RNA: R2 RNA element
RNA sequence: CGUUGAAGGUCUUGGUGUGACGUGGGGAGGUUUUAGUCGGUAGGCGCCGGACCGAGCUUCGGCUCGGGGCGGCGAAUCCGACACUGCCCGGGAUGGUUCCCCGGGCGUCUUUUGAAGAUUUCCUCCUCGUCAAC
Numbered sequence: 001c002g003u004u005g006a007a008g009g010u011c012u013u014g015g016u017g018u019g020a021c022g023u024g025g026g027g028a029g030g031u032u033u034u035a036g037u038c039g040g041u042a043g044g045c046g047c048c049g050g051a052c053c054g055a056g057c058u059u060c061g062g063c064u065c066g067g068g069g070c071g072g073c074g075a076a077u078c079c080g081a082c083a084c085u086g087c088c089c090g091g092g093a094u095g096g097u098u099c100c101c102c103g104g105g106c107g108u109c110u111u112u113u114g115a116a117g118a119u120u121u122c123c124u125c126c127u128c129g130u131c132a133a134c
Stems, first nucleotide, its partner, number of pairs: 002134005023129008036082005045074005053066005084107001086106005
Dot-bracket structure: .(((((................((((((((.....(((((....(((((...(((((....)))))...)))))...))))).(.(((((...........))))))..............)))))))))))))